[Rfam]
RNA sequence: AAAAAGGCUUACUUAUCACUUCGUAUAAUCCCGAUAAUACGGUUCGGGAGUUUCUACCAAGAGCCUUAAACUUCUUGAUUAUGAAGUCUGUAACUUUAUUU
Numbered sequence: 001a002a003a004a005a006g007g008c009u010u011a012c013u014u015a016u017c018a019c020u021u022c023g024u025a026u027a028a029u030c031c032c033g034a035u036a037a038u039a040c041g042g043u044u045c046g047g048g049a050g051u052u053u054c055u056a057c058c059a060a061g062a063g064c065c066u067u068a069a070a071c072u073u074c075u076u077g078a079u080u081a082u083g084a085a086g087u088c089u090g091u092a093a094c095u096u097u098a099u100u101u
Stems, first nucleotide, its partner, number of pairs: 018087008029049006058077005063071001
A member of the RNA family "Purine riboswitch aptamer" from Vibrio sp. 99-8-1, 101 nucleotides long. Pairs were carried over by alignment from the consensus structure, which is taken from published work. Rfam 15.1 lists 4,097 matches to the family in 1,411 species. Rfam's curators write: Riboswitches are metabolite binding domains within certain messenger RNAs that serve as precision sensors for their corresponding targets. Allosteric rearrangement of mRNA structure is mediated by ligand binding, and this results in modulation of gene expression. A class of riboswitches that selectively recognises guanine and becomes saturated at concentrations as low as 5 nM. In Bacillus subtilis, this mRNA motif is located on at least five separate transcriptional units that together encode 17 genes that are mostly involved in purine transport and purine nucleotide biosynthesis. It has also been shown that some members of this family are specific for adenine instead. Hence this family are termed purine riboswitches.